Record summary: The family of this 86-nucleotide RNA from Paramuricea clavata is "mir-130 microRNA precursor family". The source organism's lineage runs through Eukaryota, Eumetazoa, Octocorallia, Malacalcyonacea and Paramuricea. Rfam links the family to the GO terms miRNA-mediated post-transcriptional gene silencing and RISC complex. The base pairs follow the family's consensus structure, which was predicted with PFOLD.
RNA sequence: UACUAGCCCAAUGCUCUUCCAACUGAGCUAUGCGGUCAGGACCUGACCUGACCGCGUAGCUCAGUUGGAAGAGCAUUGGGCUAGUA
Numbered sequence: 001u002a003c004u005a006g007c008c009c010a011a012u013g014c015u016c017u018u019c020c021a022a023c024u025g026a027g028c029u030a031u032g033c034g035g036u037c038a039g040g041a042c043c044u045g046a047c048c049u050g051a052c053c054g055c056g057u058a059g060c061u062c063a064g065u066u067g068g069a070a071g072a073g074c075a076u077u078g079g080g081c082u083a084g085u086a
Stems, first nucleotide, its partner, number of pairs: 001086003006081006013074008023064009
Dot-bracket structure: (((..((((((.((((((((..(((((((((........................)))))))))..)))))))).))))))..)))